[Rfam]
RNA sequence: AAAUGUUAGAGCUCUUUUAUAAUUUGUCUAGCAGGUUUUCUGAUUUUCACCAGAAAAACCGCC
Numbered sequence: 001a002a003a004u005g006u007u008a009g010a011g012c013u014c015u016u017u018u019a020u021a022a023u024u025u026g027u028c029u030a031g032c033a034g035g036u037u038u039u040c041u042g043a044u045u046u047u048c049a050c051c052a053g054a055a056a057a058a059c060c061g062c063c
Base pairs, nucleotide, nucleotide: 034060035059036058037056038055039054040053041052042051044049